[Rfam]
RNA: SraG RNA
Organism: Pantoea sp. Nvir
RNA sequence: CUUCGGUUGCAUACUCACUACUAAUAACAACCUUAUCACCAAUUAUGAGAUAAAGCCUAUAAUUAGCUACGCGAAAUUUACAAACGCAGAUCACUUACAACAAUACAUCAAUUUAGUCCAGAUUGCUGUGGACUUCCAGAAUAAGAGCCAUAAAGGACCCUAUA
Numbered sequence: 001c002u003u004c005g006g007u008u009g010c011a012u013a014c015u016c017a018c019u020a021c022u023a024a025u026a027a028c029a030a031c032c033u034u035a036u037c038a039c040c041a042a043u044u045a046u047g048a049g050a051u052a053a054a055g056c057c058u059a060u061a062a063u064u065a066g067c068u069a070c071g072c073g074a075a076a077u078u079u080a081c082a083a084a085c086g087c088a089g090a091u092c093a094c095u096u097a098c099a100a101c102a103a104u105a106c107a108u109c110a111a112u113u114u115a116g117u118c119c120a121g122a123u124u125g126c127u128g129u130g131g132a133c134u135u136c137c138a139g140a141a142u143a144a145g146a147g148c149c150a151u152a153a154a155g156g157a158c159c160c161u162a163u164a
Base pairs, nucleotide, nucleotide: 001089002088004086006085007084009081011079016073018071021066022065023064024063025062027060095121096120147160148156149155